[Rfam]
RNA sequence: GGAAAGUUGAGAAGAGUCAUUCUUAGUACGAGAGGACCGGAAUGAACGCACCGCUGGUGUAUCUGUUGUUCUGCCAAGAGCAUCGCAGAGUAGCUAUGUGCGGACGGGAUAACCGCUGAAAGCAUCUAAGUGGGAAGCCUCCUUCAAGAUUAACUUUCCCUAUGAGUUUCGUUGGAGACUACGACGUUGAUAGACUGCAAGUGUAAGCAGGGAAGAAAUACCUGUUCAGCUGAGCAGCACUAAUCAGACCAAUG
Numbered sequence: 001g002g003a004a005a006g007u008u009g010a011g012a013a014g015a016g017u018c019a020u021u022c023u024u025a026g027u028a029c030g031a032g033a034g035g036a037c038c039g040g041a042a043u044g045a046a047c048g049c050a051c052c053g054c055u056g057g058u059g060u061a062u063c064u065g066u067u068g069u070u071c072u073g074c075c076a077a078g079a080g081c082a083u084c085g086c087a088g089a090g091u092a093g094c095u096a097u098g099u100g101c102g103g104a105c106g107g108g109a110u111a112a113c114c115g116c117u118g119a120a121a122g123c124a125u126c127u128a129a130g131u132g133g134g135a136a137g138c139c140u141c142c143u144u145c146a147a148g149a150u151u152a153a154c155u156u157u158c159c160c161u162a163u164g165a166g167u168u169u170c171g172u173u174g175g176a177g178a179c180u181a182c183g184a185c186g187u188u189g190a191u192a193g194a195c196u197g198c199a200a201g202u203g204u205a206a207g208c209a210g211g212g213a214a215g216a217a218a219u220a221c222c223u224g225u226u227c228a229g230c231u232g233a234g235c236a237g238c239a240c241u242a243a244u245c246a247g248a249c250c251a252a253u254g
Base pairs, nucleotide, nucleotide: 001159002158003157004156005155006154007153008152011145012144013143014142017045018044019043020042021041022040023039047102048101049100050099051098055096056095057094062089063088064087065086066085067082068081069080070079071078072077106140107139108138113133114132115131116130117129163251166249167248168247169246170186171185172184173183174182191242192241193240195237196236197235198234200231201230207225208224209223210222211221